RNA sequence: CUGCCCCCGAGUGCAAGUAAUCAAGCAUAGGCCAAGACAGAUACAAAAAGCCUAUCCUGGAUUACUUGAACCCGGUUACAG
Numbered sequence: 001c002u003g004c005c006c007c008c009g010a011g012u013g014c015a016a017g018u019a020a021u022c023a024a025g026c027a028u029a030g031g032c033c034a035a036g037a038c039a040g041a042u043a044c045a046a047a048a049a050g051c052c053u054a055u056c057c058u059g060g061a062u063u064a065c066u067u068g069a070a071c072c073c074g075g076u077u078a079c080a081g
Base pairs, nucleotide, nucleotide: 002080003079007075008074009073011071012070014068015067016066017065018064019063020062021061022060024058025057027055028054029053030052031051032050